The family of this 140-nucleotide RNA sequence from Cochlearius cochlearius is "Small nucleolar RNA SNORA5". The family is grouped with related families in Rfam's "SNORA5 clan". The family has 6 seed sequences and 2,226 matches in Rfam 15.1. A search with the family's covariance model found it, with a score of 69 bits. Rfam's curators write: ACA5 is a member of the H/ACA class of snoRNA that guide the sites of modification of uridines to pseudouridines. The family's RNA type in Rfam is H/ACA-box small nucleolar RNA. Pairs were carried over by alignment from the consensus structure, which was predicted with RNAfold.

[Rfam]
RNA sequence: UGCAGCCCUGUCAAAUUCGGUCCCUGCCUCCUCCGUGGCGGGGACCGGCCAACCGGCUGCCACAGCAACUUCUGUAUUCCACGAGCCGCAUGUCCCCUUCCCAUGGGACACUGGGGGGUAAAAUCACAGCACAGACACGU
Numbered sequence: 001u002g003c004a005g006c007c008c009u010g011u012c013a014a015a016u017u018c019g020g021u022c023c024c025u026g027c028c029u030c031c032u033c034c035g036u037g038g039c040g041g042g043g044a045c046c047g048g049c050c051a052a053c054c055g056g057c058u059g060c061c062a063c064a065g066c067a068a069c070u071u072c073u074g075u076a077u078u079c080c081a082c083g084a085g086c087c088g089c090a091u092g093u094c095c096c097c098u099u100c101c102c103a104u105g106g107g108a109c110a111c112u113g114g115g116g117g118g119u120a121a122a123a124u125c126a127c128a129g130c131a132c133a134g135a136c137a138c139g140u
Stems, first nucleotide, its partner, number of pairs: 002060004018047011074132002077129002086118002